Description: A member of the RNA family "SAM riboswitch aptamer (S box leader)" from Thermoactinomyces mirandus, 101 nucleotides long. A search with the family's covariance model found it, with a score of 75 bits. The family is grouped with related families in Rfam's "SAM clan". Its family is annotated with regulation of gene expression in the Gene Ontology. The family's consensus secondary structure is taken from published work. A reference for the family is Baird et al. (2012), "YbxF and YlxQ are bacterial homologs of L7Ae and bind K-turns but not K-loops", RNA.
RNA sequence: UCCUCAUGAAGAGAGGCGGAGGGACUGGCCCUGUGAAACCUCGGCAACCGGCAUAAACCCGGUGCCAAAUCCAGAGAACAGAUACUGUUCGAAGAUGGGGA
Number, nucleotide and partner (000 for none) at each position: 001u101002c100003c099004u098005c097006a096007u095008g000009a000010a000011g000012a000013g042014a041015g040016g039017c000018g000019g000020a000021g031022g030023g029024a000025c074026u073027g072028g071029c023030c022031c021032u000033g000034u000035g000036a000037a000038a000039c016040c015041u014042c013043g066044g065045c064046a063047a000048c062049c061050g000051g000052c000053a000054u000055a000056a000057a000058c000059c000060c000061g049062g048063u046064g045065c044066c043067a000068a000069a000070u093071c028072c027073a026074g025075a000076g090077a089078a088079c087080a086081g000082a000083u000084a000085c000086u080087g079088u078089u077090c076091g000092a000093a070094g000095a007096u006097g005098g004099g003100g002101a001